[Rfam]
RNA sequence: GGUUCCAUGGUGUAGUGGUUAGCACAUCUGCCUUACACACAGAAGAUCCUGGGUUCGAUUCCCAGUGGAACCA
Dot-bracket structure: (((((((..((((........)))).((((.........)))).....(((((.......)))))))))))).
Numbered sequence: 001g002g003u004u005c006c007a008u009g010g011u012g013u014a015g016u017g018g019u020u021a022g023c024a025c026a027u028c029u030g031c032c033u034u035a036c037a038c039a040c041a042g043a044a045g046a047u048c049c050u051g052g053g054u055u056c057g058a059u060u061c062c063c064a065g066u067g068g069a070a071c072c073a
Stems, first nucleotide, its partner, number of pairs: 001072007010025004027043004049065005